Shown here is a 100-nucleotide sequence from Glacieibacterium arshaanense, a member of the family "Glycine riboswitch aptamer". Taxonomically the source falls in Glacieibacterium (Bacteria, Pseudomonadota, Alphaproteobacteria, Sphingomonadales). Rfam's curators write: This family represents the bacterial glycine riboswitch.

RNA sequence: GGUGGCCGCGCGGGAGAGUGUGGGGGGCGAAAACGCUGCUCCACCGCCGAAGGAGCAACCGCCCCCGGAAUCUCUCAGGCAAAUGGACCGCGCGGGCACG
Number, nucleotide and partner (000 for none) at each position: 001g000002g000003u000004g000005g000006c095007c094008g093009c092010g091011c090012g089013g088014g000015a000016g000017a000018g000019u000020g044021u043022g042023g041024g040025g039026g000027g000028c000029g000030a000031a000032a000033a000034c000035g000036c000037u000038g000039c025040u024041c023042c022043a021044c020045c000046g080047c079048c078049g076050a075051a000052g000053g074054a073055g072056c000057a000058a000059c067060c000061g000062c000063c000064c000065c000066c000067g059068g000069a000070a000071u000072c055073u054074c053075u050076c049077a000078g048079g047080c046081a000082a000083a000084u000085g000086g000087a000088c013089c012090g011091c010092g009093c008094g007095g006096g000097c000098a000099c000100g000